[Rfam]
RNA: Mammalian CPEB3 ribozyme
RNA sequence: GGUGUAAUGUGUGAGGCCGUAGCAGAAGCACUCAUGGUGUGGCCCUGUCAGAUUCCAAAAAAUCUGUGAAUUCUGCU
Numbered sequence: 001g002g003u004g005u006a007a008u009g010u011g012u013g014a015g016g017c018c019g020u021a022g023c024a025g026a027a028g029c030a031c032u033c034a035u036g037g038u039g040u041g042g043c044c045c046u047g048u049c050a051g052a053u054u055c056c057a058a059a060a061a062a063u064c065u066g067u068g069a070a071u072u073c074u075g076c077u
Stems, first nucleotide, its partner, number of pairs: 013045001015044004021077007028040003049066006